[Rfam]
RNA sequence: AAGCGAAGAUCCCAGCGGAGGGGUAAAGGACUCUGGAAUUGAGGCCUCUCUAACGUCUAAGCAAUACAAAUCUUCGCAGAAUAAUUAGCCAAAUCGUAGGAUGUCUAGAAUUUCUCUGUUUCUGGAACGUCUGGAACCCUUGGCUACAUCUCA
Numbered sequence: 001a002a003g004c005g006a007a008g009a010u011c012c013c014a015g016c017g018g019a020g021g022g023g024u025a026a027a028g029g030a031c032u033c034u035g036g037a038a039u040u041g042a043g044g045c046c047u048c049u050c051u052a053a054c055g056u057c058u059a060a061g062c063a064a065u066a067c068a069a070a071u072c073u074u075c076g077c078a079g080a081a082u083a084a085u086u087a088g089c090c091a092a093a094u095c096g097u098a099g100g101a102u103g104u105c106u107a108g109a110a111u112u113u114c115u116c117u118g119u120u121u122c123u124g125g126a127a128c129g130u131c132u133g134g135a136a137c138c139c140u141u142g143g144c145u146a147c148a149u150c151u152c153a
Base pairs, nucleotide, nucleotide: 003077004076005075006074007073008072009071011020013018026049031043032042033041035039088144089143090142091141092140100131101130103128104127105125106124107123108122109121110120
The record is a 153-nucleotide sequence from Morus notabilis, which matches "Small nucleolar RNA snoR145" in Rfam. It is annotated as an H/ACA-box small nucleolar RNA. For this family Rfam cites "Mining small RNA sequencing data: a new approach to identify small nucleolar RNAs in Arabidopsis" (Chen and Wu, Nucleic Acids Res, 2009). Its family is annotated with nucleolus and RNA processing in the Gene Ontology. The base pairs follow the family's consensus structure, which was predicted with mfold.